[Rfam]
RNA sequence: AGAGAUUCUUAAGUAGUUGUGCCGUAGGUCGUCAUUUAUAGAAAAAACGACCUACACACGGCUCCUUAAGAAUUUUU
Numbered sequence: 001a002g003a004g005a006u007u008c009u010u011a012a013g014u015a016g017u018u019g020u021g022c023c024g025u026a027g028g029u030c031g032u033c034a035u036u037u038a039u040a041g042a043a044a045a046a047a048c049g050a051c052c053u054a055c056a057c058a059c060g061g062c063u064c065c066u067u068a069a070g071a072a073u074u075u076u077u
Stems, first nucleotide, its partner, number of pairs: 001077007010068004015063005024055007
RNA: mir-252 microRNA precursor family